RNA sequence: GCGGAUGUAGCUCAGUCUGGGAGAGCGCCGGAUUUGGAUCCGGAGGUCGCGGGUUCGAAUCCUGCCGUCUGCA
Number, nucleotide and partner (000 for none) at each position: 001g072002c071003g070004g069005a068006u067007g066008u000009a000010g026011c025012u024013c023014a000015g000016u000017c000018u000019g000020g000021g000022a000023g013024a012025g011026c010027g000028c043029c042030g041031g040032a039033u000034u000035u000036g000037g000038a000039u032040c031041c030042g029043g028044a000045g000046g000047u000048c000049g065050c064051g063052g062053g061054u000055u000056c000057g000058a000059a000060u000061c053062c052063u051064g050065c049066c007067g006068u005069c004070u003071g002072c001073a000
Rfam assigns this 73-nucleotide sequence from Mesorhizobium intechi to the family "tRNA".
Gene Ontology term of the family: triplet codon-amino acid adaptor activity.
Rfam classes the family as a transfer RNA.
It scores 61 bits against the family's covariance model.